A member of the RNA family "mir-658 microRNA precursor family" from Chlorocebus sabaeus, 100 nucleotides long. Its family is annotated with RISC complex and miRNA-mediated post-transcriptional gene silencing in the Gene Ontology.
[Rfam]
Nucleotides: 100
Base pairs, nucleotide, nucleotide: 002099003098004097005096007095008094010092011091012090013087014086015085016084019080021078022077023076024075025072028069029068033065034064037061039056040054043051044050045049
Number, partner (000 for none) and nucleotide at each position: 001000g002099c003098u004097c005096g006000g007095u008094u009000g010092c011091c012090g013087u014086g015085g016084u017000u018000u019080c020000a021078g022077g023076c024075c025072c026000g027000g028069c029068c030000a031000g032000c033065c034064c035000g036000c037061c038000c039056g040054c041000u042000a043051g044050c045049u046000g047000a048000c049045a050044g051043c052000g053000c054040g055000a056039c057000u058000c059000a060000g061037g062000u063000a064034g065033g066000a067000g068029g069028g070000a071000a072025g073000u074000a075024g076023g077022u078021c079000c080019g081000u082000u083000g084016g085015u086014c087013g088000a089000u090012c091011g092010g093000g094008a095007a096005c097004g098003a099002g100000g